[Rfam]
RNA: Small nucleolar RNA SNORD23
RNA sequence: UGCCCGGUGAUGAGACACAUCCUUGCACGCCUGAGGCCCUGCCCUGAGUGGUCUGGGACAGUGGGCGACACCAUGGGUCCCCUAGGAAGGCCGGGUCUGGCCUGGGCCUGGGGGCUGAGGGCA
Numbered sequence: 001u002g003c004c005c006g007g008u009g010a011u012g013a014g015a016c017a018c019a020u021c022c023u024u025g026c027a028c029g030c031c032u033g034a035g036g037c038c039c040u041g042c043c044c045u046g047a048g049u050g051g052u053c054u055g056g057g058a059c060a061g062u063g064g065g066c067g068a069c070a071c072c073a074u075g076g077g078u079c080c081c082c083u084a085g086g087a088a089g090g091c092c093g094g095g096u097c098u099g100g101c102c103u104g105g106g107c108c109u110g111g112g113g114g115c116u117g118a119g120g121g122c123a
Stems, first nucleotide, its partner, number of pairs: 001123005